[Rfam]
RNA sequence: UGACGGGGACCCGCACAAGCAGCGGAGCAUGUGGUUUAAUUCGAAGCAACGCGAAGAACCUUACCAGGGCUUGACAUAUAGCGGAACAAUGUAGAGAUACACAAUCCUCUUCGGAGGCCGCUAAACAGGUGGUGCAUGGUUGUCGUCAGCUCGUGUCGUGAGAUGUUGGGUUAAGUCCCGCAACGAGCGCAACCCCUACCAAUAGUUGCCAGCAUGUAAAGAUGGGAACUCUAAAGGGACUGCCGAUGACAAAUCGGAGGAAGGUGGGGAUGACGUCAAAUCAUCAUGCCCUAUAUGCCCUGGGCUACACACGUGCUACAAUGGUCGGAACAAAGAGCAGCAAUGGAGCAAUCCCAAGCAAAUCUCAAAAAGCCGAUCCCAGUUCGGAUUGUCCUCUGCAACCCGAGGACAUGAAGUCGGAGUUGCUAGUAAUCGCAGAUCAGAAUGCUGCGGUGAAUGCGUUCCCGGGUCUUGUACACACCGCCCGUCACACCAUGGGAGUAAUCAAUACCCGAAGCCUGUAAGCCAACCAUGCAAAUGGGAGCAGCAGUCGAAGGUAGGGAUAAUGACUGGGGUGAAGUCGUAACAAGG
Numbered sequence: 001u002g003a004c005g006g007g008g009a010c011c012c013g014c015a016c017a018a019g020c021a022g023c024g025g026a027g028c029a030u031g032u033g034g035u036u037u038a039a040u041u042c043g044a045a046g047c048a049a050c051g052c053g054a055a056g057a058a059c060c061u062u063a064c065c066a067g068g069g070c071u072u073g074a075c076a077u078a079u080a081g082c083g084g085a086a087c088a089a090u091g092u093a094g095a096g097a098u099a100c101a102c103a104a105u106c107c108u109c110u111u112c113g114g115a116g117g118c119c120g121c122u123a124a125a126c127a128g129g130u131g132g133u134g135c136a137u138g139g140u141u142g143u144c145g146u147c148a149g150c151u152c153g154u155g156u157c158g159u160g161a162g163a164u165g166u167u168g169g170g171u172u173a174a175g176u177c178c179c180g181c182a183a184c185g186a187g188c189g190c191a192a193c194c195c196c197u198a199c200c201a202a203u204a205g206u207u208g209c210c211a212g213c214a215u216g217u218a219a220a221g222a223u224g225g226g227a228a229c230u231c232u233a234a235a236g237g238g239a240c241u242g243c244c245g246a247u248g249a250c251a252a253a254u255c256g257g258a259g260g261a262a263g264g265u266g267g268g269g270a271u272g273a274c275g276u277c278a279a280a281u282c283a284u285c286a287u288g289c290c291c292u293a294u295a296u297g298c299c300c301u302g303g304g305c306u307a308c309a310c311a312c313g314u315g316c317u318a319c320a321a322u323g324g325u326c327g328g329a330a331c332a333a334a335g336a337g338c339a340g341c342a343a344u345g346g347a348g349c350a351a352u353c354c355c356a357a358g359c360a361a362a363u364c365u366c367a368a369a370a371a372g373c374c375g376a377u378c379c380c381a382g383u384u385c386g387g388a389u390u391g392u393c394c395u396c397u398g399c400a401a402c403c404c405g406a407g408g409a410c411a412u413g414a415a416g417u418c419g420g421a422g423u424u425g426c427u428a429g430u431a432a433u434c435g436c437a438g439a440u441c442a443g444a445a446u447g448c449u450g451c452g453g454u455g456a457a458u459g460c461g462u463u464c465c466c467g468g469g470u471c472u473u474g475u476a477c478a479c480a481c482c483g484c485c486c487g488u489c490a491c492a493c494c495a496u497g498g499g500a501g502u503a504a505u506c507a508a509u510a511c512c513c514g515a516a517g518c519c520u521g522u523a524a525g526c527c528a529a530c531c532a533u534g535c536a537a538a539u540g541g542g543a544g545c546a547g548c549a550g551u552c553g554a555a556g557g558u559a560g561g562g563a564u565a566a567u568g569a570c571u572g573g574g575g576u577g578a579a580g581u582c583g584u585a586a587c588a589a590g591g
Stems, first nucleotide, its partner, number of pairs: 001478002003475003007472007015462002019426005024319001026317008034308002040055004064303007077125001080122005090101004106117004128292002131290004137286002139281003142277001144275002149188006155164003167180004194269004199237002203233003209226002213224003240260002243257005323378006335366003340359002345354003385416001390411007432454007481590001483587001486583002491577004496572003501567002504564003509559004517552001519550004525545002530541004
RNA: Bacterial small subunit ribosomal RNA, nucleotides 904 to 1494
Organism: Peptoniphilus sp. ING2-D1G